[Rfam]
RNA sequence: CCCGCGGUUAGACGGAAAGACCCCGUGCACCUUUACUGCAGCUUCAGAGUGGCAUUAGGAAGGAACUGUGUAGCAUAGGUGGGAGGCUUUGAAGCAUUGGCGCCAGCCGAUGUGGAGCCAUAGGUGAAAUACCACCCUGUUGUUUUCUGAUGUCUAACCUCGUUCCGUGAAGCCGGAACAGGGACCCUCUGUGGCGGGUAGUUUGACUGGGGCGGUCGCCUCCUAAAGAGUAACGGAGGCGCGCGAUGGUGGGCUCAGGCCGGUUGGAAACCGGCUGUUAGAGUGCAAUGGCAUAAGCCCGCCUGACUGCGAGACUGACAAGUCGAGCAGAGACGAAAGUCGGUCAUAGUGAUCCGGUGGUCCCUCGUGGAAGGGCCAUCGCUCAACGGAUAAAAGGUACGCCGGGGAUAACAGGCUGAUAACCCCCAAGAGCUCAUAUCGACGGGGUUGUUUGGCACCUCGAUGUCGGCUCAUCACAUCCUGGGGCUGGAGCAGGUCCCAAGGGUUUGGCUGUUCGCCAAUUAAAGUGGUACGUGAGCUGGGUUCAGAACGUCGCGAGACAGUUUGGUCCCUAUCUGCCGUGGGCGUC
Dot-bracket structure: ((((((((.(((.((......((((.(((((((.((((...((.((((..((((((((((((.(((.(.........(((((..(((......((((((((....))))))))...)))............)))))).))).))))))))))))...(((.((((((......))))))))).....)))).))....))))..((((.....))))((((((...........))))))(.((....((((((((.((((((.......))))))....))((......))....))))))....((((..(((......)))..)))).(((....))).))..........(((((((.((........))))))))).....)......)))))..))))))........(((.((((((((...((.......))...)))))))..))))..........(((((((((((..((.((((((......))))))...)).(((((.....))))).....)))))..)..)))).).....(((((((....))).))))....))..)))))))))))....
Numbered sequence: 001c002c003c004g005c006g007g008u009u010a011g012a013c014g015g016a017a018a019g020a021c022c023c024c025g026u027g028c029a030c031c032u033u034u035a036c037u038g039c040a041g042c043u044u045c046a047g048a049g050u051g052g053c054a055u056u057a058g059g060a061a062g063g064a065a066c067u068g069u070g071u072a073g074c075a076u077a078g079g080u081g082g083g084a085g086g087c088u089u090u091g092a093a094g095c096a097u098u099g100g101c102g103c104c105a106g107c108c109g110a111u112g113u114g115g116a117g118c119c120a121u122a123g124g125u126g127a128a129a130u131a132c133c134a135c136c137c138u139g140u141u142g143u144u145u146u147c148u149g150a151u152g153u154c155u156a157a158c159c160u161c162g163u164u165c166c167g168u169g170a171a172g173c174c175g176g177a178a179c180a181g182g183g184a185c186c187c188u189c190u191g192u193g194g195c196g197g198g199u200a201g202u203u204u205g206a207c208u209g210g211g212g213c214g215g216u217c218g219c220c221u222c223c224u225a226a227a228g229a230g231u232a233a234c235g236g237a238g239g240c241g242c243g244c245g246a247u248g249g250u251g252g253g254c255u256c257a258g259g260c261c262g263g264u265u266g267g268a269a270a271c272c273g274g275c276u277g278u279u280a281g282a283g284u285g286c287a288a289u290g291g292c293a294u295a296a297g298c299c300c301g302c303c304u305g306a307c308u309g310c311g312a313g314a315c316u317g318a319c320a321a322g323u324c325g326a327g328c329a330g331a332g333a334c335g336a337a338a339g340u341c342g343g344u345c346a347u348a349g350u351g352a353u354c355c356g357g358u359g360g361u362c363c364c365u366c367g368u369g370g371a372a373g374g375g376c377c378a379u380c381g382c383u384c385a386a387c388g389g390a391u392a393a394a395a396g397g398u399a400c401g402c403c404g405g406g407g408a409u410a411a412c413a414g415g416c417u418g419a420u421a422a423c424c425c426c427c428a429a430g431a432g433c434u435c436a437u438a439u440c441g442a443c444g445g446g447g448u449u450g451u452u453u454g455g456c457a458c459c460u461c462g463a464u465g466u467c468g469g470c471u472c473a474u475c476a477c478a479u480c481c482u483g484g485g486g487c488u489g490g491a492g493c494a495g496g497u498c499c500c501a502a503g504g505g506u507u508u509g510g511c512u513g514u515u516c517g518c519c520a521a522u523u524a525a526a527g528u529g530g531u532a533c534g535u536g537a538g539c540u541g542g543g544u545u546c547a548g549a550a551c552g553u554c555g556c557g558a559g560a561c562a563g564u565u566u567g568g569u570c571c572c573u574a575u576c577u578g579c580c581g582u583g584g585g586c587g588u589c
Stems, first nucleotide, its partner, number of pairs: 001585008010577003014572002022406004027402002029398005035202004042194002045191004051154012064141003068137001078136005085119003094113008158182003162179006205217004218240006241387001243344002249302006255282002258276006283292002307330004313324003332341003355381007363374002415456003419453001420450007430440002467542001468540004472534001473531005480505002483500006507521005548566004552561003